[Rfam]
RNA sequence: GCGAGGUGACGAUAGAAAUUCAUGUUUUUCAACUCACUGACUUUGUGAUGUUACUGUGAAUCCCGACAGGUUCUGAUCGC
Numbered sequence: 001g002c003g004a005g006g007u008g009a010c011g012a013u014a015g016a017a018a019u020u021c022a023u024g025u026u027u028u029u030c031a032a033c034u035c036a037c038u039g040a041c042u043u044u045g046u047g048a049u050g051u052u053a054c055u056g057u058g059a060a061u062c063c064c065g066a067c068a069g070g071u072u073c074u075g076a077u078c079g080c
Stems, first nucleotide, its partner, number of pairs: 001080004
Rfam assigns this 80-nucleotide RNA from Rosa chinensis to the family "Small nucleolar RNA snoR14".
It scores 84 bits against the family's covariance model.
The base pairs follow the family's consensus structure.
Rfam links the family to the GO terms nucleolus and RNA processing.
For this family Rfam cites "Multiple snoRNA gene clusters from Arabidopsis" (Brown et al., RNA, 2001).